[Rfam]
RNA sequence: UGUAAUACCGAGGCACACACAGUGUCUGACUGGUCAACAAGGGAUACUGAUCUUAGUGAUUAAGCGUAAUGUAAGUACGUCAGUCUCUUGGAAAGUGGGGAAACCCACUUUUUUUAUGGAAA
Numbered sequence: 001u002g003u004a005a006u007a008c009c010g011a012g013g014c015a016c017a018c019a020c021a022g023u024g025u026c027u028g029a030c031u032g033g034u035c036a037a038c039a040a041g042g043g044a045u046a047c048u049g050a051u052c053u054u055a056g057u058g059a060u061u062a063a064g065c066g067u068a069a070u071g072u073a074a075g076u077a078c079g080u081c082a083g084u085c086u087c088u089u090g091g092a093a094a095g096u097g098g099g100g101a102a103a104c105c106c107a108c109u110u111u112u113u114u115u116a117u118g119g120a121a122a
Stems, first nucleotide, its partner, number of pairs: 008033003011027006038090006046084004050060003064080005091112009
Dot-bracket structure: .......(((((((((.....))))))...)))....((((((..(((((((.....)))...(((((.......)))))))))))))))(((((((((....)))))))))..........
Background: Rfam assigns this 122-nucleotide RNA to the family "DUF3800-I RNA". The family's RNA type in Rfam is small RNA. Actinobacteria, Firmicutes, Fusobacteria, Proteobacteria (1 example), Tenericutes (2 examples). It is one of the family's seed sequences.